[Rfam]
RNA sequence: CCCUUGGAGAGUUAUAUCAAACGAAAGUAGGUUGUUAUUUAUAAUUUCCAAAAUCGAAUUCGUAGAACAGGGAA
Numbered sequence: 001c002c003c004u005u006g007g008a009g010a011g012u013u014a015u016a017u018c019a020a021a022c023g024a025a026a027g028u029a030g031g032u033u034g035u036u037a038u039u040u041a042u043a044a045u046u047u048c049c050a051a052a053a054u055c056g057a058a059u060u061c062g063u064a065g066a067a068c069a070g071g072g073a074a
Base pairs, nucleotide, nucleotide: 001072002071003070004069009061010060011059012058013057022056023055024054030049031048034045035044

RAGATH-18 RNA: a 74-nucleotide RNA sequence. Rfam classes the family as a small RNA. The sequence is in the family's curated seed alignment. About the family: Actinobacteria, Firmicutes, Fusobacteria, Thermotogae (1 example). Pairs were carried over by alignment from the consensus structure, which is taken from published work.